Bacterial large subunit ribosomal RNA: a 592-nucleotide part of an RNA from an uncultured Verrucomicrobiota bacterium.
The family's consensus secondary structure is taken from published work.

[Rfam]
RNA sequence: CCCGCAGAAGGACGGAAAGACCCUAUGCACCUUAACUGUAAGCUGUCACUGAAUUGCUGAAUUGCAUGCUCAGAAUAAGUGGUAGGCUUUGAUGCUUGUCUUUAGGGGCAAGUGGAGCCAACAAGUGAGAUACCACCCUUGCUAUUCCGCGAUUCUAACAUAAAGGCACGUGAUACGUGCAUUUGGACAAUGGCAGCCGGUCAGUUUUACUGGGGCGGUAUCCUCCCAAAAGAUAACGGAGGAGCGCGAUGGUGUGCUCAGCACGGUUGGUAAUCGUGUGUCGAGUGUAUAGGCAAAAGCACGCCUAACUGUGAGACCAACAAGUCGAACAGAUACGAAAGUAGGUCUAAGUGAUCCGGCGGUUAAAUGUGGAAUUGCCGUCGCUUAACGGAUAAAAGGUACGCUAGGGAUAACAGGCUGAUUUGACCCAAGAGUUCAUAUCGACGGUUAAGUUUGGCACCUCGAUGUCGGCUCGUCGCAUCCUGGGGCUGAAAAAGGUCCCAAGGGUCCGGCUGUUCGCCGGUUAAAGCGGCACGCGAGCUGGGUUCAGAACGUCGCGAGACAGUUCGGUCCUCUAUCCUCUGUGGGCGUU
Numbered sequence: 001c002c003c004g005c006a007g008a009a010g011g012a013c014g015g016a017a018a019g020a021c022c023c024u025a026u027g028c029a030c031c032u033u034a035a036c037u038g039u040a041a042g043c044u045g046u047c048a049c050u051g052a053a054u055u056g057c058u059g060a061a062u063u064g065c066a067u068g069c070u071c072a073g074a075a076u077a078a079g080u081g082g083u084a085g086g087c088u089u090u091g092a093u094g095c096u097u098g099u100c101u102u103u104a105g106g107g108g109c110a111a112g113u114g115g116a117g118c119c120a121a122c123a124a125g126u127g128a129g130a131u132a133c134c135a136c137c138c139u140u141g142c143u144a145u146u147c148c149g150c151g152a153u154u155c156u157a158a159c160a161u162a163a164a165g166g167c168a169c170g171u172g173a174u175a176c177g178u179g180c181a182u183u184u185g186g187a188c189a190a191u192g193g194c195a196g197c198c199g200g201u202c203a204g205u206u207u208u209a210c211u212g213g214g215g216c217g218g219u220a221u222c223c224u225c226c227c228a229a230a231a232g233a234u235a236a237c238g239g240a241g242g243a244g245c246g247c248g249a250u251g252g253u254g255u256g257c258u259c260a261g262c263a264c265g266g267u268u269g270g271u272a273a274u275c276g277u278g279u280g281u282c283g284a285g286u287g288u289a290u291a292g293g294c295a296a297a298a299g300c301a302c303g304c305c306u307a308a309c310u311g312u313g314a315g316a317c318c319a320a321c322a323a324g325u326c327g328a329a330c331a332g333a334u335a336c337g338a339a340a341g342u343a344g345g346u347c348u349a350a351g352u353g354a355u356c357c358g359g360c361g362g363u364u365a366a367a368u369g370u371g372g373a374a375u376u377g378c379c380g381u382c383g384c385u386u387a388a389c390g391g392a393u394a395a396a397a398g399g400u401a402c403g404c405u406a407g408g409g410a411u412a413a414c415a416g417g418c419u420g421a422u423u424u425g426a427c428c429c430a431a432g433a434g435u436u437c438a439u440a441u442c443g444a445c446g447g448u449u450a451a452g453u454u455u456g457g458c459a460c461c462u463c464g465a466u467g468u469c470g471g472c473u474c475g476u477c478g479c480a481u482c483c484u485g486g487g488g489c490u491g492a493a494a495a496a497g498g499u500c501c502c503a504a505g506g507g508u509c510c511g512g513c514u515g516u517u518c519g520c521c522g523g524u525u526a527a528a529g530c531g532g533c534a535c536g537c538g539a540g541c542u543g544g545g546u547u548c549a550g551a552a553c554g555u556c557g558c559g560a561g562a563c564a565g566u567u568c569g570g571u572c573c574u575c576u577a578u579c580c581u582c583u584g585u586g587g588g589c590g591u592u
Stems, first nucleotide, its partner, number of pairs: 001588008010580003014575001015573001022408004027404002029400005035205004042197007051155007059147004064142003068138001079136004085119003094113008159185002166180005208220004221243006244389001246346002252304006258284002261279006285294002309332004315326003334343003357383007365376002417458003421455001422452007432442002469544001470542004474536001475533005482507002485502006509523005550568004554563003
The sequence is in the family's curated seed alignment.